Rfam assigns this 104-nucleotide RNA from Caenorhabditis elegans to the family "mir-36 microRNA precursor family". NCBI's taxonomy places the organism under Eukaryota, Eumetazoa, Nematoda, Rhabditomorpha, Caenorhabditis. Rfam links the family to the GO terms RISC complex and miRNA-mediated post-transcriptional gene silencing. A reference for the family is Ohler et al. (2004), "Patterns of flanking sequence conservation and a characteristic upstream motif for microRNA gene identification", RNA. Pairs were carried over by alignment from the consensus structure, which was predicted with WAR.
[Rfam]
RNA sequence: UUUAAGUGGGUCCCAGAGACCUUGGUGGUUUUUCUCUGCAGUGAUAGAUACUUCUAACAACUCGCUAUCACCGGGUGAAAAAUCACCUAGGUCUGGAGCCUCCU
Numbered sequence: 001u002u003u004a005a006g007u008g009g010g011u012c013c014c015a016g017a018g019a020c021c022u023u024g025g026u027g028g029u030u031u032u033u034c035u036c037u038g039c040a041g042u043g044a045u046a047g048a049u050a051c052u053u054c055u056a057a058c059a060a061c062u063c064g065c066u067a068u069c070a071c072c073g074g075g076u077g078a079a080a081a082a083u084c085a086c087c088u089a090g091g092u093c094u095g096g097a098g099c100c101u102c103c104u
Stems, first nucleotide, its partner, number of pairs: 017094006024087011036075002039073001041071006